RNA sequence: GGACUGCGAUGAUACAAGAGGUUGCUGGGUAACCAGGUAAUUCUUGUUGAGAAUGUCCGAAUCAAGAAUCGGGCGA
Numbered sequence: 001g002g003a004c005u006g007c008g009a010u011g012a013u014a015c016a017a018g019a020g021g022u023u024g025c026u027g028g029g030u031a032a033c034c035a036g037g038u039a040a041u042u043c044u045u046g047u048u049g050a051g052a053a054u055g056u057c058c059g060a061a062u063c064a065a066g067a068a069u070c071g072g073g074c075g076a
Base pairs, nucleotide, nucleotide: 014047015046016045018043019042020041025036026035027034028033054075055074056073057072058071059070060069
RNA: S10-Clostridia ribosomal protein leader